[Rfam]
RNA sequence: CCCAGCAUGUCCCUUUAUCUGCAUUUGCACCUGCACCUUACUUGUUUCUUCCUCUUGUUUUCCGAAACCAGGAGUUUAAUUGAUGCAUUGGAACAAGCUUAAGGUGCUGGUGCAGGUGCAGGUGAAUGCCAUGUUGGU
Numbered sequence: 001c002c003c004a005g006c007a008u009g010u011c012c013c014u015u016u017a018u019c020u021g022c023a024u025u026u027g028c029a030c031c032u033g034c035a036c037c038u039u040a041c042u043u044g045u046u047u048c049u050u051c052c053u054c055u056u057g058u059u060u061u062c063c064g065a066a067a068c069c070a071g072g073a074g075u076u077u078a079a080u081u082g083a084u085g086c087a088u089u090g091g092a093a094c095a096a097g098c099u100u101a102a103g104g105u106g107c108u109g110g111u112g113c114a115g116g117u118g119c120a121g122g123u124g125a126a127u128g129c130c131a132u133g134u135u136g137g138u
Stems, first nucleotide, its partner, number of pairs: 002137008012128001014126018033107006053073005059067003
RNA: MIR530 microRNA precursor family